The family of this 128-nucleotide sequence from Gulo gulo is "Small nucleolar RNA SNORA41".
It is annotated as an H/ACA-box small nucleolar RNA.
The organism belongs to Gulo, within Eukaryota.
The match comes from Rfam's covariance-model search (93 bits).
Rfam links the family to the GO terms RNA processing and nucleolus.
About the family: ACA41 is a member of the H/ACA class of snoRNA that guide the sites of modification of uridines to pseudouridines.
The literature on the family includes a 2001 paper in EMBO J by Huttenhofer et al., "RNomics: an experimental approach that identifies 201 candidates for novel, small, non-messenger RNAs in mouse".
RNA sequence: UGCCAUAGCUACUAGUCUUUAGCUGUCCUUAUGGUAGCAAUUGUGGCAUUCCACUGUGAAAAACUGUUAAGUGAUUAAACACCCCUUUCUUAGCAAAAUAGAAGUGGGCAUAUGUGUGACGAACAGAA
Numbered sequence: 001u002g003c004c005a006u007a008g009c010u011a012c013u014a015g016u017c018u019u020u021a022g023c024u025g026u027c028c029u030u031a032u033g034g035u036a037g038c039a040a041u042u043g044u045g046g047c048a049u050u051c052c053a054c055u056g057u058g059a060a061a062a063a064c065u066g067u068u069a070a071g072u073g074a075u076u077a078a079a080c081a082c083c084c085c086u087u088u089c090u091u092a093g094c095a096a097a098a099u100a101g102a103a104g105u106g107g108g109c110a111u112a113u114g115u116g117u118g119a120c121g122a123a124c125a126g127a128a
Stems, first nucleotide, its partner, number of pairs: 004058003017046002020043003024039002069117001071115003082108003085104002088102003